[Rfam]
Shown here is a 74-nucleotide sequence from Alligator mississippiensis, a member of the family "Mammalian CPEB3 ribozyme". Lineage of the source: Eukaryota > Eumetazoa > Craniata > Tetrapoda > Alligator. A search with the family's covariance model found it, with a score of 42 bits.
RNA sequence: UUGGAAAUUCAAGGCUGAAGGAGAAGUUCUUACAGCACAGCCUGUCAGAUUCCAACAAAUCUGCAAAUUCUGCU
Numbered sequence: 001u002u003g004g005a006a007a008u009u010c011a012a013g014g015c016u017g018a019a020g021g022a023g024a025a026g027u028u029c030u031u032a033c034a035g036c037a038c039a040g041c042c043u044g045u046c047a048g049a050u051u052c053c054a055a056c057a058a059a060u061c062u063g064c065a066a067a068u069u070c071u072g073c074u
Stems, first nucleotide, its partner, number of pairs: 013042004019074002022071004026038002046063006